[Rfam]
RNA sequence: UUAACGGUCCUUUUAAGGACCACCAAAAUCUUUUAAAAAGGAGUCU
Numbered sequence: 001u002u003a004a005c006g007g008u009c010c011u012u013u014u015a016a017g018g019a020c021c022a023c024c025a026a027a028a029u030c031u032u033u034u035a036a037a038a039a040g041g042a043g044u045c046u
Base pairs, nucleotide, nucleotide: 006021007020008019009018010017011016